RNA sequence: CUUGGAUCAAUGAUGUGUCCAGAAUCUGCAUCAUCUUUCUGUAACUCUUUUAAAGGAUUUGAAGGUGACACAAAGCUGCUGAAAUCUGAG
Numbered sequence: 001c002u003u004g005g006a007u008c009a010a011u012g013a014u015g016u017g018u019c020c021a022g023a024a025u026c027u028g029c030a031u032c033a034u035c036u037u038u039c040u041g042u043a044a045c046u047c048u049u050u051u052a053a054a055g056g057a058u059u060u061g062a063a064g065g066u067g068a069c070a071c072a073a074a075g076c077u078g079c080u081g082a083a084a085u086c087u088g089a090g
Base pairs, nucleotide, nucleotide: 001090002089003088004087005086006085007084

The record is a 90-nucleotide sequence from Elaeis guineensis, which matches "Small nucleolar RNA snoR27" in Rfam. The family's consensus secondary structure was predicted with WAR. Clan: snR68 clan. NCBI's taxonomy places the organism under Eukaryota, Spermatophyta, Arecales, Elaeidinae, Elaeis. It scores 54 bits against the family's covariance model. It is annotated as a C/D-box small nucleolar RNA.